The family of this 54-nucleotide RNA sequence is "Streptococcus sRNA SpF59 (ldcC RNA)". For this family Rfam cites "Control of virulence by small RNAs in Streptococcus pneumoniae" (Mann et al., PLoS Pathog, 2012). It is one of the family's seed sequences. It is annotated as a small RNA.

RNA sequence: UGACCGCUCUUUAACGGGAGCCAAGGCCAUACGGACAGCCGGGUCAACUGCCGA
Numbered sequence: 001u002g003a004c005c006g007c008u009c010u011u012u013a014a015c016g017g018g019a020g021c022c023a024a025g026g027c028c029a030u031a032c033g034g035a036c037a038g039c040c041g042g043g044u045c046a047a048c049u050g051c052c053g054a
Base pairs, nucleotide, nucleotide: 001046002045003044004043005042006021007020008019009018010017011016